[Rfam]
RNA sequence: GUAAAGACGCCAGUAAGUGGAUUGCUAGGCUUGAGGAGAGAUGAAGGACGUGGCAAGCUGCGAUAAGCCCGGGGUAGGCGCACGCGACCUUUGAUCCCGGGAUGUCCGAAUGAGAAUCUUGUUUUUUAAACACUCCGUUGCAAUGGCAGCGGAGAUCGAACCGUCGGAAUUGAAGCAUCUUAGUACGACGAGGAAAAGAAAUCAAUUGAGAUUUCCCAAGUAGUGGCGAACGAAACGGAAAUAGCCCAAACCGAAUCUGUUAUGGUAACAUAUCAGAGAUGUGGUGUUUUGGUUAUGAUAUUACGAUCCUAGAAUACAGCUGAAGUGUUCUGGAACGUACCGGCGAAGUGGGUGAUACCCCCGUAAGCGAAGUAGUAUAGGAUCUUAUCAUGACCCGAGUAGCUGUCCUUGGCAGUGGGCAGUGAAUAUAGGUGAAAGUAGUAUCUUAGGCUAAAUAUUUCUCAAGACCGAUAGUGAACUAGUACCGUGAGGGAAAGCUGAAAAGAACCCCGGAAGGGGGCUGAAAAGCGCAUGAAACUUACUGGUUACAGACG
Dot-bracket structure: ........(((((((((.....(((..((((((((((........((((((........))).....((((((...((.........))......))))))...)))....(((...)))............(((((((((....)))))))))......((((((.....((....))......))))).).........((....))...((((......((.....)).....))))..((((....(((.......((((....)))).........)))..........((((......((((..........(((...(.((.(......).)))..(...).(((.......)))...)))............))))...))))..........(((((((........)))))))......(((((.......)))))..)))).....)).)))))).))...............((....))....)).................................).....)))))))))........
Numbered sequence: 001g002u003a004a005a006g007a008c009g010c011c012a013g014u015a016a017g018u019g020g021a022u023u024g025c026u027a028g029g030c031u032u033g034a035g036g037a038g039a040g041a042u043g044a045a046g047g048a049c050g051u052g053g054c055a056a057g058c059u060g061c062g063a064u065a066a067g068c069c070c071g072g073g074g075u076a077g078g079c080g081c082a083c084g085c086g087a088c089c090u091u092u093g094a095u096c097c098c099g100g101g102a103u104g105u106c107c108g109a110a111u112g113a114g115a116a117u118c119u120u121g122u123u124u125u126u127u128a129a130a131c132a133c134u135c136c137g138u139u140g141c142a143a144u145g146g147c148a149g150c151g152g153a154g155a156u157c158g159a160a161c162c163g164u165c166g167g168a169a170u171u172g173a174a175g176c177a178u179c180u181u182a183g184u185a186c187g188a189c190g191a192g193g194a195a196a197a198g199a200a201a202u203c204a205a206u207u208g209a210g211a212u213u214u215c216c217c218a219a220g221u222a223g224u225g226g227c228g229a230a231c232g233a234a235a236c237g238g239a240a241a242u243a244g245c246c247c248a249a250a251c252c253g254a255a256u257c258u259g260u261u262a263u264g265g266u267a268a269c270a271u272a273u274c275a276g277a278g279a280u281g282u283g284g285u286g287u288u289u290u291g292g293u294u295a296u297g298a299u300a301u302u303a304c305g306a307u308c309c310u311a312g313a314a315u316a317c318a319g320c321u322g323a324a325g326u327g328u329u330c331u332g333g334a335a336c337g338u339a340c341c342g343g344c345g346a347a348g349u350g351g352g353u354g355a356u357a358c359c360c361c362c363g364u365a366a367g368c369g370a371a372g373u374a375g376u377a378u379a380g381g382a383u384c385u386u387a388u389c390a391u392g393a394c395c396c397g398a399g400u401a402g403c404u405g406u407c408c409u410u411g412g413c414a415g416u417g418g419g420c421a422g423u424g425a426a427u428a429u430a431g432g433u434g435a436a437a438g439u440a441g442u443a444u445c446u447u448a449g450g451c452u453a454a455a456u457a458u459u460u461c462u463c464a465a466g467a468c469c470g471a472u473a474g475u476g477a478a479c480u481a482g483u484a485c486c487g488u489g490a491g492g493g494a495a496a497g498c499u500g501a502a503a504a505g506a507a508c509c510c511c512g513g514a515a516g517g518g519g520g521c522u523g524a525a526a527a528g529c530g531c532a533u534g535a536a537a538c539u540u541a542c543u544g545g546u547u548a549c550a551g552a553c554g
Stems, first nucleotide, its partner, number of pairs: 009546009023532001024498002028469002030466006036459002046107003049062003068101006077089002112120003133154009161192001162190005172179002202209002213240004223231002243452004251284003261272004295391004305384004319368003325341001327340002330337001344348001350362003402423007430446005485492002

This 554-nucleotide part of an RNA from uncultured marine crenarchaeote SAT1000-49-D2 belongs to the Rfam family "Archaeal large subunit ribosomal RNA". Taxonomically the source falls in Nitrosopumilales (Archaea, Thermoproteati, Nitrososphaerota, Nitrososphaeria).